[Rfam]
RNA sequence: GAUCGUGAUGAUGACUCCAUAAAUUCAAGCUCAACAGACCGGAUUGCAGGAAUUUCUCAAUACGAUAAAUUCUAUGCGUGUCGAGAAACCCGCUGAACUGAGCGAUU
Numbered sequence: 001g002a003u004c005g006u007g008a009u010g011a012u013g014a015c016u017c018c019a020u021a022a023a024u025u026c027a028a029g030c031u032c033a034a035c036a037g038a039c040c041g042g043a044u045u046g047c048a049g050g051a052a053u054u055u056c057u058c059a060a061u062a063c064g065a066u067a068a069a070u071u072c073u074a075u076g077c078g079u080g081u082c083g084a085g086a087a088a089c090c091c092g093c094u095g096a097a098c099u100g101a102g103c104g105a106u107u
Stems, first nucleotide, its partner, number of pairs: 001107006
Record summary:
Small nucleolar RNA Z107/R87: a 107-nucleotide sequence from Apium graveolens. The literature on the family includes a 2001 paper in J Mol Biol by Barneche et al., "Identification of 66 box C/D snoRNAs in Arabidopsis thaliana: extensive gene duplications generated multiple isoforms predicting new ribosomal RNA 2'-O-methylation sites". By type it is a C/D-box small nucleolar RNA.